[Rfam]
RNA sequence: AAACUUUUCCAGACGAUCGUCGGCGGAGCAAUCCGCGGGAGGAAAGUCCGGACUCCGCAGGGCACCGUAGCAGCUAACGGCUGUCCGCCGCGAGGCGAGGAUCAGAGCAACAGAGACGAGCCGGCGUUGGGGUCGGUUGAAACGGGCAAUCUCUACGGGGAGCAACAUCAAAUAGGCAGCCUAUGGUUCGGCCCGGACCGGUUGCGGGUAGAUGGCUUGAGGCGUCGCGCGAGCGCCGUCCUAGACGAAUGAUCGUCACUGCGCCCUCGGGCGCGGAACAUAAUCCGGCUUAUCGGGAGAGUUUCCGG
Numbered sequence: 001a002a003a004c005u006u007u008u009c010c011a012g013a014c015g016a017u018c019g020u021c022g023g024c025g026g027a028g029c030a031a032u033c034c035g036c037g038g039g040a041g042g043a044a045a046g047u048c049c050g051g052a053c054u055c056c057g058c059a060g061g062g063c064a065c066c067g068u069a070g071c072a073g074c075u076a077a078c079g080g081c082u083g084u085c086c087g088c089c090g091c092g093a094g095g096c097g098a099g100g101a102u103c104a105g106a107g108c109a110a111c112a113g114a115g116a117c118g119a120g121c122c123g124g125c126g127u128u129g130g131g132g133u134c135g136g137u138u139g140a141a142a143c144g145g146g147c148a149a150u151c152u153c154u155a156c157g158g159g160g161a162g163c164a165a166c167a168u169c170a171a172a173u174a175g176g177c178a179g180c181c182u183a184u185g186g187u188u189c190g191g192c193c194c195g196g197a198c199c200g201g202u203u204g205c206g207g208g209u210a211g212a213u214g215g216c217u218u219g220a221g222g223c224g225u226c227g228c229g230c231g232a233g234c235g236c237c238g239u240c241c242u243a244g245a246c247g248a249a250u251g252a253u254c255g256u257c258a259c260u261g262c263g264c265c266c267u268c269g270g271g272c273g274c275g276g277a278a279c280a281u282a283a284u285c286c287g288g289c290u291u292a293u294c295g296g297g298a299g300a301g302u303u304u305c306c307g308g
Stems, first nucleotide, its partner, number of pairs: 001304010011293001012257007020039002023036005044291003048288005053162004060194004065158005070084005085099001086097004100153002105151002107147002121136005166214004176205006185199005221240004226235003

About this RNA
Rfam assigns this 308-nucleotide RNA from Sutterella wadsworthensis to the family "Bacterial RNase P class A". Gene Ontology terms of the family: tRNA processing, ribonuclease P activity and dimeric ribonuclease P complex. By type it is a ribozyme.